[Rfam]
RNA sequence: GGCGGCCGUACGGGAGAGUGCCAGGCCAUGCCGGGCCGCCGAAGGAGCAACCGCCCCCGGAAUCUCUCAGGCAAAAGGACCGUACGCGCCUG
Numbered sequence: 001g002g003c004g005g006c007c008g009u010a011c012g013g014g015a016g017a018g019u020g021c022c023a024g025g026c027c028a029u030g031c032c033g034g035g036c037c038g039c040c041g042a043a044g045g046a047g048c049a050a051c052c053g054c055c056c057c058c059g060g061a062a063u064c065u066c067u068c069a070g071g072c073a074a075a076a077g078g079a080c081c082g083u084a085c086g087c088g089c090c091u092g
Stems, first nucleotide, its partner, number of pairs: 007086007020036003038072003041068002045066003051059001

The family of this 92-nucleotide RNA sequence from Sphingomicrobium lutaoense is "Glycine riboswitch aptamer". The match comes from Rfam's covariance-model search (64 bits). The organism belongs to Sphingomicrobium, within Bacteria. The pairing is the family consensus, mapped onto this sequence.